[Rfam]
RNA sequence: GCCCAGGUGGUGGAAUUGGUAGACACGCUAGCUUCAGGUGCUAGUGGCCUUACGGCCGUGGAGGUUCAAGUCCUCUCCUGGGCA
Number, nucleotide and partner (000 for none) at each position: 001g083002c082003c081004c080005a079006g078007g077008u000009g000010g026011u025012g024013g000014a000015a000016u000017u000018g000019g000020u000021a000022g000023a000024c012025a011026c010027g000028c044029u043030a042031g041032c040033u000034u000035c000036a000037g000038g000039u000040g032041c031042u030043a029044g028045u000046g000047g000048c000049c000050u000051u000052a000053c000054g000055g000056c000057c000058g000059u000060g076061g075062a074063g073064g072065u000066u000067c000068a000069a000070g000071u000072c064073c063074u062075c061076u060077c007078c006079u005080g004081g003082g002083c001084a000
Shown here is an 84-nucleotide sequence from Marisediminitalea lipolytica, a member of the family "tRNA". A search with the family's covariance model found it, with a score of 54 bits. Rfam describes the family as follows. Transfer RNA (tRNA) molecules are approximately 80 nucleotides in length. Their secondary structure includes four short double-helical elements and three loops (D, anti-codon, and T loops).